[Rfam]
A member of the RNA family "Plastid-psbN 5UTR RNA" from Glycine max, 61 nucleotides long. The family has 63 seed sequences and 2,345 matches in Rfam 15.1. The match comes from Rfam's covariance-model search (79 bits). Rfam describes the family as follows. Plastid psbN is a non-coding RNA (ncRNA) recognised in plastids. It was reported as a conserved 11 stem-loop in the prime untranslated region (5UTR) of psbN genes. It has been reported that the motif is retained in a subset of mature transcripts in barley, which can suggests a possible role in transcript alternative 5 prime processing. Lineage of the source: Eukaryota > Spermatophyta > Mesangiospermae > Fabales > Glycine subgen. Soja.
RNA sequence: UGCAACACCCGUCAAAGGAGUAGUUUCCCAUUCUGGAGCUACUUUACCAUAUUCUGAAUUU
Numbered sequence: 001u002g003c004a005a006c007a008c009c010c011g012u013c014a015a016a017g018g019a020g021u022a023g024u025u026u027c028c029c030a031u032u033c034u035g036g037a038g039c040u041a042c043u044u045u046a047c048c049a050u051a052u053u054c055u056g057a058a059u060u061u
Stems, first nucleotide, its partner, number of pairs: 017045011